RNA sequence: GGUUGGGUGGGCAAAGAUGCCUGCUUUCAAGAAAUUUGAUUUCCGGGGUGGGAAAUU
Numbered sequence: 001g002g003u004u005g006g007g008u009g010g011g012c013a014a015a016g017a018u019g020c021c022u023g024c025u026u027u028c029a030a031g032a033a034a035u036u037u038g039a040u041u042u043c044c045g046g047g048g049u050g051g052g053a054a055a056u057u
Base pairs, nucleotide, nucleotide: 003030004029005028006025007024008023009022010021011020038057039056040055041054042053043052044051
Annotation
Rfam assigns this 57-nucleotide RNA to the family "Na+ riboswitch aptamer (DUF1646)". The sequence is in the family's curated seed alignment. The literature on the family includes a 2022 paper in Nat Chem Biol by White et al., "Na(+) riboswitches regulate genes for diverse physiological processes in bacteria". Its family is annotated with sodium ion binding and regulation of gene expression in the Gene Ontology. Pairs were carried over by alignment from the consensus structure, which is taken from published work.